[Rfam]
RNA: MIR7504 microRNA precursor family
Organism: Gossypium mustelinum
RNA sequence: CAUUAGAGAAUGACAAAUCAGAUUUUUCUUUCUAAUUUUUAACUUCUUUCUCCUGAUAAAAUUUAAAUUCAACUAAAAAUGCUAAAAAUCAAGAGAAAAAAUUUGAUUUGUCAUUCUCUCAUU
Numbered sequence: 001c002a003u004u005a006g007a008g009a010a011u012g013a014c015a016a017a018u019c020a021g022a023u024u025u026u027u028c029u030u031u032c033u034a035a036u037u038u039u040u041a042a043c044u045u046c047u048u049u050c051u052c053c054u055g056a057u058a059a060a061a062u063u064u065a066a067a068u069u070c071a072a073c074u075a076a077a078a079a080u081g082c083u084a085a086a087a088a089u090c091a092a093g094a095g096a097a098a099a100a101a102u103u104u105g106a107u108u109u110g111u112c113a114u115u116c117u118c119u120c121a122u123u
Stems, first nucleotide, its partner, number of pairs: 002122002005119023029095003033091001035089005041083001045079001047077002